Source information:
Rfam assigns this 45-nucleotide sequence from Polypterus senegalus to the family "Histone 3' UTR stem-loop".
[Rfam]
RNA sequence: CCAACGGCUCUUUUCAGGGCCACCCACAUAAUCGGAAAAGAGUUC
Numbered sequence: 001c002c003a004a005c006g007g008c009u010c011u012u013u014u015c016a017g018g019g020c021c022a023c024c025c026a027c028a029u030a031a032u033c034g035g036a037a038a039a040g041a042g043u044u045c
Stems, first nucleotide, its partner, number of pairs: 006021006
The base pairs follow the family's consensus structure, which is taken from published work. The match comes from Rfam's covariance-model search (36 bits). Lineage of the source: Eukaryota > Metazoa > Eumetazoa > Polypteriformes > Polypterus.